[Rfam]
RNA sequence: UUACUCUCCUUCAGUAUCAAUAUCUCCUAAUAUAAGACUAUGAUUAGUUUAUAUUAGCUUA
Numbered sequence: 001u002u003a004c005u006c007u008c009c010u011u012c013a014g015u016a017u018c019a020a021u022a023u024c025u026c027c028u029a030a031u032a033u034a035a036g037a038c039u040a041u042g043a044u045u046a047g048u049u050u051a052u053a054u055u056a057g058c059u060u061a
Stems, first nucleotide, its partner, number of pairs: 007043002010040001028056009